[Rfam]
RNA sequence: AUGAGAAGGGCAUUCGGUGGAUGCCUUGGCAUCAGGAGGCGAUGAAAGACGUGGCACGCUGCGAAAAGCCACGGGGAGCUGCGAGCAAGCUUUGAUCCGUGGAUAUCUGAAUGGGGAGACCCACCUAGCGAUAGGUAUCAUGGCGUGAAUACAUAGCGUCAUGAGGCGAACCCGGGGAACUGAAACAUCUCAUUACCCGGAGGAAAAGACAUCAACAGAGAUUCCGCUAGUAGUGGCGAGCGAACGCGGAGCAGGCCAGUGGCCUUUGUCGAAGAAGCAGAACGGUCUGGAAAGUCCGGCGAGAGUGGGUGAUAGCCCCGUAUGCGUAGUGUCGAUAAAGGUUCUUGAGUAGGGCGGGGCACGUGAAACCCUGUCUGAACAUGGGGGGACCACCCUCCAAGCCUAAAUACUCCCUGAUGACCGAUAGCGAACAAGUACCGUGAGGGAAAGGUGAAAAGCACCCCGAUGAGGGGAGUGAAAGAGACCUGAAACCGGAUGCCUACAAG
Numbered sequence: 001a002u003g004a005g006a007a008g009g010g011c012a013u014u015c016g017g018u019g020g021a022u023g024c025c026u027u028g029g030c031a032u033c034a035g036g037a038g039g040c041g042a043u044g045a046a047a048g049a050c051g052u053g054g055c056a057c058g059c060u061g062c063g064a065a066a067a068g069c070c071a072c073g074g075g076g077a078g079c080u081g082c083g084a085g086c087a088a089g090c091u092u093u094g095a096u097c098c099g100u101g102g103a104u105a106u107c108u109g110a111a112u113g114g115g116g117a118g119a120c121c122c123a124c125c126u127a128g129c130g131a132u133a134g135g136u137a138u139c140a141u142g143g144c145g146u147g148a149a150u151a152c153a154u155a156g157c158g159u160c161a162u163g164a165g166g167c168g169a170a171c172c173c174g175g176g177g178a179a180c181u182g183a184a185a186c187a188u189c190u191c192a193u194u195a196c197c198c199g200g201a202g203g204a205a206a207a208g209a210c211a212u213c214a215a216c217a218g219a220g221a222u223u224c225c226g227c228u229a230g231u232a233g234u235g236g237c238g239a240g241c242g243a244a245c246g247c248g249g250a251g252c253a254g255g256c257c258a259g260u261g262g263c264c265u266u267u268g269u270c271g272a273a274g275a276a277g278c279a280g281a282a283c284g285g286u287c288u289g290g291a292a293a294g295u296c297c298g299g300c301g302a303g304a305g306u307g308g309g310u311g312a313u314a315g316c317c318c319c320g321u322a323u324g325c326g327u328a329g330u331g332u333c334g335a336u337a338a339a340g341g342u343u344c345u346u347g348a349g350u351a352g353g354g355c356g357g358g359g360c361a362c363g364u365g366a367a368a369c370c371c372u373g374u375c376u377g378a379a380c381a382u383g384g385g386g387g388g389a390c391c392a393c394c395c396u397c398c399a400a401g402c403c404u405a406a407a408u409a410c411u412c413c414c415u416g417a418u419g420a421c422c423g424a425u426a427g428c429g430a431a432c433a434a435g436u437a438c439c440g441u442g443a444g445g446g447a448a449a450g451g452u453g454a455a456a457a458g459c460a461c462c463c464c465g466a467u468g469a470g471g472g473g474a475g476u477g478a479a480a481g482a483g484a485c486c487u488g489a490a491a492c493c494g495g496a497u498g499c500c501u502a503c504a505a506g
Stems, first nucleotide, its partner, number of pairs: 008501010023486001024451002028422002030419007037411002039167002047108003050063003069102007078090003113122003123136005138164009171202001172200005182189002212219002222407001223250005233241002253404004263341010274330001277325003283298003287294001307319003352376008383398005438445002461473004
Record summary
Shown here is a 506-nucleotide part of an RNA from Kozakia baliensis, a member of the family "Bacterial large subunit ribosomal RNA". Taxonomically the source falls in Kozakia (Bacteria, Pseudomonadota, Alphaproteobacteria, Acetobacteraceae). The literature on the family includes a 2001 paper in Science by Yusupov et al., "Crystal structure of the ribosome at 5.5 A resolution".